[Rfam]
RNA sequence: GCUUUCUCAUGAGCUCCUCUCUGCCGAUCAGUGGCGUUGUAUGGAUUCGCACGAGAAGAAGAGACUAAUCACAAAUUGAACAGGCACCCCCCUAAUCUCAACAGGUGUUGCCCAUGUCUGCUGUGAAACAAUU
Numbered sequence: 001g002c003u004u005u006c007u008c009a010u011g012a013g014c015u016c017c018u019c020u021c022u023g024c025c026g027a028u029c030a031g032u033g034g035c036g037u038u039g040u041a042u043g044g045a046u047u048c049g050c051a052c053g054a055g056a057a058g059a060a061g062a063g064a065c066u067a068a069u070c071a072c073a074a075a076u077u078g079a080a081c082a083g084g085c086a087c088c089c090c091c092c093u094a095a096u097c098u099c100a101a102c103a104g105g106u107g108u109u110g111c112c113c114a115u116g117u118c119u120g121c122u123g124u125g126a127a128a129c130a131a132u133u
Stems, first nucleotide, its partner, number of pairs: 003058006013050002015045003022036004069126005089107001091105003
The record is a 133-nucleotide RNA sequence, which matches "Small nucleolar RNA SNORA75" in Rfam. Rfam 15.1 lists 414 matches to the family in 310 species. A reference for the family is Bachellerie et al. (2002), "The expanding snoRNA world", Biochimie. Pairs were carried over by alignment from the consensus structure, which was predicted with PFOLD. Rfam classes the family as an H/ACA-box small nucleolar RNA.